Archaeal large subunit ribosomal RNA: a 554-nucleotide part of an RNA from uncultured crenarchaeote 4B7.
RNA sequence: GUAAAGACGGUAAUAGAGGGAUUGCUAGGUUUGAGUAGAGAUGAAGGACGUGGCAAGCUGCGAUAAGCCCGGGGUAAGCGCACGCGACUUAUGAUCCCGGGAUGUCCGAAUGAGAAUCUUAUGUUUACAUACUCCGUUACAUAGGUGGCGGAGGUCGAACCGUCGGAAUUGAAGCAUCUUAGUACGACGUGGAAGAGAAAUCAAUAGAGAUUACCCAAGUAGUGGCGAACGAAAAGGUAACAGCCCAAACUGAAUCUGUUAUGGUAACUUAACAGAGAUGUGGUGUAUACGGACUCAUAUAAUAAUCCUAGAACAUAGUUGAAAUAAUCUGGAACGUUUUGGCAUAGAGGGUGAUACCCCCGUAAACGAAAUGGUAUAGGAUUAGUUGAGUACCAGAGUAGAUGUCCUUGGUAGUGGGCAUCGAAUAUUAGGAGAAAGUAGCUUCUAAGGCUAAAUAUAACUCAAAACCGAUAGUGUACUAGUACCGUGAGGGAAAGCUGAAAAGUACCCCGGAAGGGGGGUGAAAAGUGCAUGAAAUCUAUUACUUACAGACG
Numbered sequence: 001g002u003a004a005a006g007a008c009g010g011u012a013a014u015a016g017a018g019g020g021a022u023u024g025c026u027a028g029g030u031u032u033g034a035g036u037a038g039a040g041a042u043g044a045a046g047g048a049c050g051u052g053g054c055a056a057g058c059u060g061c062g063a064u065a066a067g068c069c070c071g072g073g074g075u076a077a078g079c080g081c082a083c084g085c086g087a088c089u090u091a092u093g094a095u096c097c098c099g100g101g102a103u104g105u106c107c108g109a110a111u112g113a114g115a116a117u118c119u120u121a122u123g124u125u126u127a128c129a130u131a132c133u134c135c136g137u138u139a140c141a142u143a144g145g146u147g148g149c150g151g152a153g154g155u156c157g158a159a160c161c162g163u164c165g166g167a168a169u170u171g172a173a174g175c176a177u178c179u180u181a182g183u184a185c186g187a188c189g190u191g192g193a194a195g196a197g198a199a200a201u202c203a204a205u206a207g208a209g210a211u212u213a214c215c216c217a218a219g220u221a222g223u224g225g226c227g228a229a230c231g232a233a234a235a236g237g238u239a240a241c242a243g244c245c246c247a248a249a250c251u252g253a254a255u256c257u258g259u260u261a262u263g264g265u266a267a268c269u270u271a272a273c274a275g276a277g278a279u280g281u282g283g284u285g286u287a288u289a290c291g292g293a294c295u296c297a298u299a300u301a302a303u304a305a306u307c308c309u310a311g312a313a314c315a316u317a318g319u320u321g322a323a324a325u326a327a328u329c330u331g332g333a334a335c336g337u338u339u340u341g342g343c344a345u346a347g348a349g350g351g352u353g354a355u356a357c358c359c360c361c362g363u364a365a366a367c368g369a370a371a372u373g374g375u376a377u378a379g380g381a382u383u384a385g386u387u388g389a390g391u392a393c394c395a396g397a398g399u400a401g402a403u404g405u406c407c408u409u410g411g412u413a414g415u416g417g418g419c420a421u422c423g424a425a426u427a428u429u430a431g432g433a434g435a436a437a438g439u440a441g442c443u444u445c446u447a448a449g450g451c452u453a454a455a456u457a458u459a460a461c462u463c464a465a466a467a468c469c470g471a472u473a474g475u476g477u478a479c480u481a482g483u484a485c486c487g488u489g490a491g492g493g494a495a496a497g498c499u500g501a502a503a504a505g506u507a508c509c510c511c512g513g514a515a516g517g518g519g520g521g522u523g524a525a526a527a528g529u530g531c532a533u534g535a536a537a538u539c540u541a542u543u544a545c546u547u548a549c550a551g552a553c554g
Stems, first nucleotide, its partner, number of pairs: 009546009023532001024498002028469002030466006036459002046107003049062003068101006077089002112120003132153009160191001161189005171178002201208002212239004222230002242452004250283003260271002263268001294390004304383004318367003324340001326339002329336001343347001349361003401422007430446005485492002